[Rfam]
RNA sequence: AAAAUGAAUAAUGUUCGUACUCAUAUAUGCUUGAUAAUGUGGUUCAAGUGUUUCUACCAGGCAGCCGUAAAUUGCUGGGCUAUGGGUGUUUAAUACUAUAAC
Numbered sequence: 001a002a003a004a005u006g007a008a009u010a011a012u013g014u015u016c017g018u019a020c021u022c023a024u025a026u027a028u029g030c031u032u033g034a035u036a037a038u039g040u041g042g043u044u045c046a047a048g049u050g051u052u053u054c055u056a057c058c059a060g061g062c063a064g065c066c067g068u069a070a071a072u073u074g075c076u077g078g079g080c081u082a083u084g085g086g087u088g089u090u091u092a093a094u095a096c097u098a099u100a101a102c
Stems, first nucleotide, its partner, number of pairs: 018088008029049006058078001060076005
This 102-nucleotide RNA sequence from Clostridium sp. JN-9 belongs to the Rfam family "Purine riboswitch aptamer". Rfam links the family to the GO term purine nucleobase biosynthetic process.